[Rfam]
RNA: Vault RNA
Organism: Cyprinus carpio
RNA sequence: GCGUUGGUUUAGCUCAGUGGUUACUUCAACAAGCAAAAACUAGCUCUUGGUUGACGGUCACCGACGGCCAGAGAUCAAACCACGGGCUCUGUCCAACGUUUUG
Numbered sequence: 001g002c003g004u005u006g007g008u009u010u011a012g013c014u015c016a017g018u019g020g021u022u023a024c025u026u027c028a029a030c031a032a033g034c035a036a037a038a039a040c041u042a043g044c045u046c047u048u049g050g051u052u053g054a055c056g057g058u059c060a061c062c063g064a065c066g067g068c069c070a071g072a073g074a075u076c077a078a079a080c081c082a083c084g085g086g087c088u089c090u091g092u093c094c095a096a097c098g099u100u101u102u103g
Base pairs, nucleotide, nucleotide: 002098003097004096005095006094007093012087013086014085015084017083018082019081020080025073026072027071